[Rfam]
RNA sequence: AUGAAUAUUACGGGAGAGACUAAACGAAUUGUUUAGCACCGAAGGAGCAAGUUCUGAAAAGAAUUAAUCUCUCAGGUAAAAGGACCAUAAUAGGACG
Numbered sequence: 001a002u003g004a005a006u007a008u009u010a011c012g013g014g015a016g017a018g019a020c021u022a023a024a025c026g027a028a029u030u031g032u033u034u035a036g037c038a039c040c041g042a043a044g045g046a047g048c049a050a051g052u053u054c055u056g057a058a059a060a061g062a063a064u065u066a067a068u069c070u071c072u073c074a075g076g077u078a079a080a081a082g083g084a085c086c087a088u089a090a091u092a093g094g095a096c097g
Stems, first nucleotide, its partner, number of pairs: 006092005012086002020036004038077003041073002045071003051064002
This 97-nucleotide RNA sequence from Sporosarcina sp. HYO08 belongs to the Rfam family "Glycine riboswitch aptamer". The pairing is the family consensus, mapped onto this sequence. The match comes from Rfam's covariance-model search (70 bits).